[Rfam]
RNA sequence: CCUCGGGUUAAAACCCGAGGCUAUUAUAUCUGCGCCCUUACAGGGCU
Numbered sequence: 001c002c003u004c005g006g007g008u009u010a011a012a013a014c015c016c017g018a019g020g021c022u023a024u025u026a027u028a029u030c031u032g033c034g035c036c037c038u039u040a041c042a043g044g045g046c047u
Base pairs, nucleotide, nucleotide: 001020002019003018004017005016006015007014008013034046035045036044037043038042
RNA: Acido-Lenti-1 RNA